[Rfam]
RNA sequence: GUCCGAUAAGGGCAAACCACUUGAAAGAGUGGGGCGCAAAGCUUCUGGCCUAAUCUCCGAAGCCAGGCGGAGAAUGGUAGCAGGGCUGCCGGG
Numbered sequence: 001g002u003c004c005g006a007u008a009a010g011g012g013c014a015a016a017c018c019a020c021u022u023g024a025a026a027g028a029g030u031g032g033g034g035c036g037c038a039a040a041g042c043u044u045c046u047g048g049c050c051u052a053a054u055c056u057c058c059g060a061a062g063c064c065a066g067g068c069g070g071a072g073a074a075u076g077g078u079a080g081c082a083g084g085g086c087u088g089c090c091g092g093g
Stems, first nucleotide, its partner, number of pairs: 012037002017032006040087004045083003048078003055072004
A member of the RNA family "c-di-GMP-I riboswitch aptamer" from Thermodesulforhabdus norvegica, 93 nucleotides long. Rfam links the family to the GO term cyclic-di-GMP binding. Pairs were carried over by alignment from the consensus structure, which is taken from published work.